[Rfam]
RNA sequence: GAUAGGCAGCUGUCGCUACUGUGAUUGGACACUGACGCUGAGUCAAUUAGCCUUGUCCAGGCGGUUCUUUGCGCAAGGAACCGGGGUGGUCCGAGUCACGAGGGGGGAGACUCGGACCGCCUGUC
Dot-bracket structure: (((((....)))))((((..(((......)))((((.....))))..)))).........((((....))))....(....)..(((((((((((((.(......)..)))))))))))))....
Notes:
This 125-nucleotide RNA sequence from Streptomyces sp. ADI97-07 belongs to the Rfam family "Streptomyces RNA 3920". Rfam classes the family as a small RNA. Identified by deep sequencing of transcriptome at the end of exponential growth phase. Sequencing size consistent with northern blot size. Streptomyces specific. The pairing is the family consensus, mapped onto this sequence.